[Rfam]
RNA sequence: AGGGCAUGAGUAUUACAUCAGGUACUGGUUCGUUGUUAUCAGAAACCGGUUCCUGAGUAACACUUGCACCCU
Numbered sequence: 001a002g003g004g005c006a007u008g009a010g011u012a013u014u015a016c017a018u019c020a021g022g023u024a025c026u027g028g029u030u031c032g033u034u035g036u037u038a039u040c041a042g043a044a045a046c047c048g049g050u051u052c053c054u055g056a057g058u059a060a061c062a063c064u065u066g067c068a069c070c071c072u
Stems, first nucleotide, its partner, number of pairs: 001072004009064003015058002018055001021053002024050006

Shown here is a 72-nucleotide RNA from Rhynchophorus ferrugineus, a member of the family "mir-12 microRNA precursor family". The source organism's lineage runs through Eukaryota, Opisthokonta, Eumetazoa, Hexapoda and Rhynchophorus. The family's consensus secondary structure was predicted with RNAalifold.